Source information
Shown here is a 373-nucleotide RNA sequence from Spongiibacter nanhainus, a member of the family "Bacterial RNase P class A". A search with the family's covariance model found it, with a score of 326 bits.
[Rfam]
RNA sequence: UGAGUCGGCUGGACGGCCGCUUUGCGUAAAGGCUCUGCUUUUUGCGCCGAGAGGAAAGUCCGGGCUCCAUAGGGUAGGGCGCCAGGUAACGCCUGGGGGGUGAAAGCCCACGGAAAGUGCAGCAGAAAGUAAACCGCCUAAGCGAGGAGGCUAUGCCUCUUAGCUGGUAAGGGUGAAAAGGUGCGGUAAGAGCGCACCGCGCAACUGGCAACAGUUUGCGGCGAUGGUAAACCCCGCCCGGAGCAAGGCCAAAUAGGAACCCAAUGCCGUGACCCGCGGUGGGUUCGGGUAGGCCGCUAGAAGCCGGUGGUGACGCCGGCUCCAGAUGAAUGGUCGUCCACGACAGAACCCGGCUUAUAGGCCGACUCGCUUU
Number, nucleotide and partner (000 for none) at each position: 001u369002g368003a367004g366005u365006c364007g363008g362009c361010u360011g358012g338013a337014c336015g335016g334017c333018c332019g000020c051021u050022u049023u000024g047025c046026g045027u044028a043029a042030a041031g040032g039033c000034u000035c000036u000037g000038c000039u032040u031041u030042u029043u028044g027045c026046g025047c024048c000049g022050a021051g020052a000053g000054g000055a000056a356057a355058g354059u000060c353061c352062g351063g350064g349065c243066u242067c241068c240069a000070u000071a000072g275073g274074g273075u272076a000077g239078g238079g237080c236081g235082c096083c095084a094085g093086g092087u000088a000089a000090c000091g000092c086093c085094u084095g083096g082097g111098g109099g108100g107101u106102g000103a000104a000105a000106g101107c100108c099109c098110a000111c097112g234113g233114a000115a000116a000117g232118u231119g228120c227121a000122g000123c000124a000125g000126a000127a000128a000129g000130u000131a000132a000133a000134c172135c171136g168137c167138c166139u000140a000141a165142g164143c163144g000145a161146g160147g159148a158149g157150g156151c000152u000153a000154u000155g000156c150157c149158u148159c147160u146161u145162a000163g143164c142165u141166g138167g137168u136169a000170a000171g135172g134173g000174u000175g000176a000177a000178a000179a000180g198181g197182u196183g195184c194185g193186g000187u000188a000189a000190g000191a000192g000193c185194g184195c183196a182197c181198c180199g222200c220201g219202c218203a217204a216205c214206u213207g212208g000209c000210a000211a000212c207213a206214g205215u000216u204217u203218g202219c201220g200221g000222c199223g000224a000225u000226g000227g120228u119229a000230a000231a118232c117233c113234c112235c081236g080237c079238c078239c077240g068241g067242a066243g065244c000245a000246a000247g295248g294249c293250c292251a000252a000253a000254u000255a000256g000257g286258a285259a284260c283261c282262c281263a000264a000265u000266g280267c279268c278269g277270u276271g000272a075273c074274c073275c072276g270277c269278g268279g267280u266281g262282g261283g260284u259285u258286c257287g000288g000289g000290u000291a000292g250293g249294c248295c247296g000297c000298u000299a000300g000301a000302a321303g320304c319305c318306g317307g316308u315309g314310g000311u000312g000313a000314c309315g308316c307317c306318g305319g304320c303321u302322c000323c000324a000325g000326a000327u000328g000329a000330a000331u000332g018333g017334u016335c015336g014337u013338c012339c000340a000341c000342g000343a000344c000345a000346g000347a000348a000349c064350c063351c062352g061353g060354c058355u057356u056357a000358u011359a000360g010361g009362c008363c007364g006365a005366c004367u003368c002369g001370c000371u000372u000373u000